[Rfam]
RNA: U5 spliceosomal RNA
Organism: Megalops atlanticus
RNA sequence: CCGCUCUGGUUUCUCUUCAUCACGUACAAAUCUUUCGCCUUUUACUAAAGAUUUCCGUGGAGAGGAACACAGGUGAGCCUGUGCUAUUUUUGGAGUCCCUGCCUUUAAGGCAGGCG
Numbered sequence: 001c002c003g004c005u006c007u008g009g010u011u012u013c014u015c016u017u018c019a020u021c022a023c024g025u026a027c028a029a030a031u032c033u034u035u036c037g038c039c040u041u042u043u044a045c046u047a048a049a050g051a052u053u054u055c056c057g058u059g060g061a062g063a064g065g066a067a068c069a070c071a072g073g074u075g076a077g078c079c080u081g082u083g084c085u086a087u088u089u090u091u092g093g094a095g096u097c098c099c100u101g102c103c104u105u106u107a108a109g110g111c112a113g114g115c116g
Base pairs, nucleotide, nucleotide: 003078004077005076006075009068010067011066012065013064014063015062016061017060018059019058028054029053030052031051032050033049034048035047096116098114099113100112101111